[Rfam]
RNA sequence: UUAAAAACUUUAGCGCCAUGUACCCUGUGAUACAGCUUUCGCGGAAGCAAUGUGCAAAUGUGAUACAGCUUUCGCUGCACCACAAGGGUUAACGAGGAUUCAGGUGAUCGAAGAUUCGGCGGAUGCCUGAACGCAGAAAGGGGCUGCGCAUACGAAUCACAAACAGGAUGGUAACAUCCGAACAAAGGAUUCGUACCCCGAUG
Dot-bracket structure: .....................(((((..........................................................)))))..........(((((...((((....))))......))))).(((((.......)))))....((((((.......(((((....)))))........))))))..........
Numbered sequence: 001u002u003a004a005a006a007a008c009u010u011u012a013g014c015g016c017c018a019u020g021u022a023c024c025c026u027g028u029g030a031u032a033c034a035g036c037u038u039u040c041g042c043g044g045a046a047g048c049a050a051u052g053u054g055c056a057a058a059u060g061u062g063a064u065a066c067a068g069c070u071u072u073c074g075c076u077g078c079a080c081c082a083c084a085a086g087g088g089u090u091a092a093c094g095a096g097g098a099u100u101c102a103g104g105u106g107a108u109c110g111a112a113g114a115u116u117c118g119g120c121g122g123a124u125g126c127c128u129g130a131a132c133g134c135a136g137a138a139a140g141g142g143g144c145u146g147c148g149c150a151u152a153c154g155a156a157u158c159a160c161a162a163a164c165a166g167g168a169u170g171g172u173a174a175c176a177u178c179c180g181a182a183c184a185a186a187g188g189a190u191u192c193g194u195a196c197c198c199c200g201a202u203g
Stems, first nucleotide, its partner, number of pairs: 022089005100130005108119004132148005153193006166179005
glmS glucosamine-6-phosphate activated ribozyme aptamer: a 203-nucleotide RNA sequence from Roseburia sp. CAG:18. A search with the family's covariance model found it, with a score of 60 bits. By type it is a riboswitch.